[Rfam]
RNA: MIR8024 microRNA precursor family
Organism: Solanum tuberosum
RNA sequence: UUGAAUAAUUUAAAGACUUCAACUUGCAUACUUGGAUGAAUUUAAAGACUUCAACUUGUAUACUUGGAUGAAUUUAAAGACUUCAAAA
Numbered sequence: 001u002u003g004a005a006u007a008a009u010u011u012a013a014a015g016a017c018u019u020c021a022a023c024u025u026g027c028a029u030a031c032u033u034g035g036a037u038g039a040a041u042u043u044a045a046a047g048a049c050u051u052c053a054a055c056u057u058g059u060a061u062a063c064u065u066g067g068a069u070g071a072a073u074u075u076a077a078a079g080a081c082u083u084c085a086a087a088a
Stems, first nucleotide, its partner, number of pairs: 001086005009078006017070001018068004025060004032054005038049001